[Rfam]
RNA sequence: CCCGUUGCGCUUGAACCCCACACACGUGUCGACACGGUAUCCUGGGUGCUCGAAAGAGUUGGAUAUCGGGACGCGUGGAGGCCUAAC
Dot-bracket structure: ......................((((((((....((((((((.....((((....)))).)))))))).))))))))..........
RNA: t44 RNA
Organism: Pseudomonas sp. BAY1663